[Rfam]
RNA sequence: UUGCCCGAUGAUUAUAAAAAGACGCGAUAAGAGGACUUAUGCUGGAGUUCUCCUUUUUUUCUCUCUCUCUCUCCUAUACUACUAUUUCUUUCUUGUAUGUCCAGCGUCCAAUGAGCGAAGAUUAUGAGAUAUGAGGGCAA
Numbered sequence: 001u002u003g004c005c006c007g008a009u010g011a012u013u014a015u016a017a018a019a020a021g022a023c024g025c026g027a028u029a030a031g032a033g034g035a036c037u038u039a040u041g042c043u044g045g046a047g048u049u050c051u052c053c054u055u056u057u058u059u060u061c062u063c064u065c066u067c068u069c070u071c072u073c074c075u076a077u078a079c080u081a082c083u084a085u086u087u088c089u090u091u092c093u094u095g096u097a098u099g100u101c102c103a104g105c106g107u108c109c110a111a112u113g114a115g116c117g118a119a120g121a122u123u124a125u126g127a128g129a130u131a132u133g134a135g136g137g138c139a140a
Stems, first nucleotide, its partner, number of pairs: 001140006032051007
The family of this 140-nucleotide sequence from Castor canadensis is "Small nucleolar RNA SNORD97". The match comes from Rfam's covariance-model search (145 bits). Taxonomically the source falls in Castor (Eukaryota, Craniata, Euteleostomi, Tetrapoda). Pairs were carried over by alignment from the consensus structure, which was predicted with WAR.